[Rfam]
RNA: small nucleolar RNA snoR137
Organism: Rhododendron simsii
RNA sequence: GUUGCUUCUUAGAAAGGCGAAUGACUACUUUACUAGUUGGUCAUUCAUAUCGGGAAGCAUACAUGAAUUAAUUUGCCAGUUUUAAACAGCAUGAUGUUCACUGUUGCAUUGUGUUACCUGUCUGCUGGUAAAUUU
Number, nucleotide and partner (000 for none) at each position: 001g000002u000003u059004g058005c057006u056007u055008c054009u000010u000011a000012g000013a000014a000015a000016g000017g000018c000019g046020a045021a044022u043023g042024a041025c040026u039027a000028c000029u000030u000031u000032a000033c000034u000035a000036g000037u000038u000039g026040g025041u024042c023043a022044u021045u020046c019047a000048u000049a000050u000051c000052g000053g000054g008055a007056a006057g005058c004059a003060u000061a000062c000063a000064u000065g000066a000067a000068u000069u000070a000071a000072u000073u000074u000075g129076c128077c127078a126079g125080u124081u000082u000083u000084a000085a000086a000087c000088a115089g114090c113091a000092u111093g110094a109095u108096g107097u000098u000099c000100a000101c000102u000103g000104u000105u000106g000107c096108a095109u094110u093111g092112u000113g090114u089115u088116a000117c000118c000119u000120g000121u000122c000123u000124g080125c079126u078127g077128g076129u075130a000131a000132a000133u000134u000135u000